[Rfam]
The family of this 121-nucleotide sequence is "Streptomyces-metH RNA". The family's consensus secondary structure is taken from published work. By type it is a small RNA. A search with the family's covariance model found it, with a score of 109 bits.
RNA sequence: GCGUUCCGUCCAGUGGACGCCUCCGCGGAGAAACCACCGGCCCGGCUACCCUGGCCGGGUGCGCCUCCUCCAUGGGAGCCGCAAAGCCGACAGCCGUCGCACCUCAGGGAGCACUUUCAUG
Dot-bracket structure: ...........................................................((((.((((......)))).))))..((.(((....))))).....................